Record summary
Rfam assigns this 217-nucleotide RNA to the family "IS605-orfB-I RNA". By type it is a small RNA.
RNA sequence: GUCGUAUAAAGAUGUAUUAGACGCAAGACAGUCUAGCAUCUCCCUUUACGGCAGAUAAUAUUAGAUGUUCAGGCAAAAGUAAUUGUUGCAUGGUUAAUAAUCGAAACAAUUUGAGUUUGAACGGAACAGGUUAACCGUAUAACCUUGUGCUGAAAAACACUAAAAACAAUCUUGAGAUAGUGAAUUCUGAAUUUUCGUUAUUUUGAGUUACGGUUAG
Dot-bracket structure: ((((((.(.((((((..((((((.....).)))))))))))...).))))))..............((((((((......(((((((....((.(...).))..)))))))...)))))))).....[[[[[.(((((((]]]]].(((.(....).))).....)....((((((((((((((.........)))))))))))))).))))))...